[Rfam]
RNA sequence: UGAAAGGCCGUAAAUGAUUGGCUGAUGAAUUUACGAUCUCUUAACUUUUUUUGAAAGUUAAGAAAAAGUUAAGAGAUCGUAAAUUCAUCAGCCAAUCAUUUACGGCCUUU
Numbered sequence: 001u002g003a004a005a006g007g008c009c010g011u012a013a014a015u016g017a018u019u020g021g022c023u024g025a026u027g028a029a030u031u032u033a034c035g036a037u038c039u040c041u042u043a044a045c046u047u048u049u050u051u052u053g054a055a056a057g058u059u060a061a062g063a064a065a066a067a068g069u070u071a072a073g074a075g076a077u078c079g080u081a082a083a084u085u086c087a088u089c090a091g092c093c094a095a096u097c098a099u100u101u102a103c104g105g106c107c108u109u110u
Base pairs, nucleotide, nucleotide: 006107007106008105009104010103011102013100014099015098016097017096018095019094020093021092022091023090024089026087027086028085
Dot-bracket structure: .....((((((.((((((((((((.(((........................................................))).)))))))))))).))))))...
Notes
MIR397 microRNA precursor family: a 110-nucleotide RNA from Hyalella azteca. The match comes from Rfam's covariance-model search (55 bits). Gene Ontology terms of the family: RISC complex and miRNA-mediated post-transcriptional gene silencing. The base pairs follow the family's consensus structure, which was predicted with WAR.